A member of the RNA family "Lysine riboswitch aptamer" from Winslowiella iniecta, 194 nucleotides long.
A reference for the family is Sudarsan et al. (2003), "An mRNA structure in bacteria that controls gene expression by binding lysine", Genes Dev.
The match comes from Rfam's covariance-model search (92 bits).

[Rfam]
RNA sequence: CAAGCCAGAAGAGGCGCGUCGCCCAGGUAGUGUGUCGGAGGAACCGAAUCCGAUGAAGGCACAUAAGGGGGUGCGACGCCGAGAUAUCCUACACACGGAGUGUCCGAUAUCGACUGCAGGGGCUGAAUCCCCUGGGUUGUCACCAGGGUCGUUCGGCAGUCGGACGACCUGCAAGGUGGGGCGCUUCUGGGUGU
Numbered sequence: 001c002a003a004g005c006c007a008g009a010a011g012a013g014g015c016g017c018g019u020c021g022c023c024c025a026g027g028u029a030g031u032g033u034g035u036c037g038g039a040g041g042a043a044c045c046g047a048a049u050c051c052g053a054u055g056a057a058g059g060c061a062c063a064u065a066a067g068g069g070g071g072u073g074c075g076a077c078g079c080c081g082a083g084a085u086a087u088c089c090u091a092c093a094c095a096c097g098g099a100g101u102g103u104c105c106g107a108u109a110u111c112g113a114c115u116g117c118a119g120g121g122g123c124u125g126a127a128u129c130c131c132c133u134g135g136g137u138u139g140u141c142a143c144c145a146g147g148g149u150c151g152u153u154c155g156g157c158a159g160u161c162g163g164a165c166g167a168c169c170u171g172c173a174a175g176g177u178g179g180g181g182c183g184c185u186u187c188u189g190g191g192u193g194u
Stems, first nucleotide, its partner, number of pairs: 006189006016079007024071001030064007083111006091103004112138004117134006140179005